A member of the RNA family "c-di-AMP riboswitch aptamer (ydaO/yuaA leader)" from Geodermatophilus ruber, 156 nucleotides long.

[Rfam]
RNA sequence: CGCCGGACACCGCCGAACCGGGCAGCCGGCCGUGUGCCGGUGCCCGGGCCGGGGACCCACCGCAGCACUGGGGUGAAGCGCAGCCGUGUGGUUGCGCCGGGCGCGUUCCCCGCCCGAACCCGUCAGCUAACUCGGUAGGCGGUUCGUGGAGAACAG
Number, nucleotide and partner (000 for none) at each position: 001c000002g000003c000004c000005g000006g000007a000008c000009a000010c000011c141012g140013c139014c138015g000016a000017a000018c047019c046020g045021g044022g043023c042024a041025g000026c000027c000028g000029g000030c000031c000032g000033u000034g000035u000036g000037c000038c000039g000040g000041u024042g023043c022044c021045c020046g019047g018048g136049c135050c134051g133052g132053g131054g000055a000056c000057c000058c070059a069060c000061c000062g000063c000064a000065g000066c000067a000068c000069u059070g058071g121072g120073g119074u000075g000076a000077a000078g000079c096080g095081c094082a093083g000084c000085c000086g000087u000088g000089u000090g000091g000092u000093u082094g081095c080096g079097c000098c000099g115100g114101g113102c112103g000104c000105g000106u000107u000108c000109c000110c000111c000112g102113c101114c100115c099116g000117a000118a000119c073120c072121c071122g000123u000124c000125a000126g000127c000128u000129a000130a000131c053132u052133c051134g050135g049136u048137a000138g014139g013140c012141g011142g000143u000144u000145c000146g000147u000148g000149g000150a000151g000152a000153a000154c000155a000156g000